RNA sequence: GAUCCCGGUGAUGAUUUAUGUUAAAAAGUAGUGGCCUGAUUCAUACAUUGAUGAUAUCUAUAUUAUCACUCUGAGGGAUC
Numbered sequence: 001g002a003u004c005c006c007g008g009u010g011a012u013g014a015u016u017u018a019u020g021u022u023a024a025a026a027a028g029u030a031g032u033g034g035c036c037u038g039a040u041u042c043a044u045a046c047a048u049u050g051a052u053g054a055u056a057u058c059u060a061u062a063u064u065a066u067c068a069c070u071c072u073g074a075g076g077g078a079u080c
Base pairs, nucleotide, nucleotide: 001080002079003078004077005076006075
The family of this 80-nucleotide RNA from Triticum aestivum is "Small nucleolar RNA R21". Its family is annotated with RNA processing and nucleolus in the Gene Ontology. A search with the family's covariance model found it, with a score of 48 bits. Lineage of the source: Eukaryota > Streptophyta > Euphyllophyta > Magnoliopsida > Triticum. The literature on the family includes a 2001 paper in J Mol Biol by Barneche et al., "Identification of 66 box C/D snoRNAs in Arabidopsis thaliana: extensive gene duplications generated multiple isoforms predicting new ribosomal RNA 2'-O-methylation sites".